[Rfam]
Nucleotides: 097
Base pairs, nucleotide, nucleotide: 001097002096003095005093006092007091008090009087
Number, partner (000 for none) and nucleotide at each position: 001097g002096a003095a004000g005093c006092a007091a008090a009087g010000a011000a012000u013000g014000a015000u016000g017000a018000u019000u020000c021000a022000a023000u024000u025000a026000g027000u028000u029000g030000u031000g032000u033000g034000a035000a036000a037000g038000g039000a040000u041000u042000a043000a044000u045000c046000c047000u048000a049000u050000c051000u052000g053000a054000a055000c056000u057000c058000a059000a060000c061000a062000c063000a064000c065000u066000u067000g068000a069000g070000g071000c072000a073000u074000u075000u076000g077000a078000u079000a080000c081000a082000u083000c084000u085000g086000a087009c088000a089000u090008u091007u092006u093005g094000a095003u096002u097001c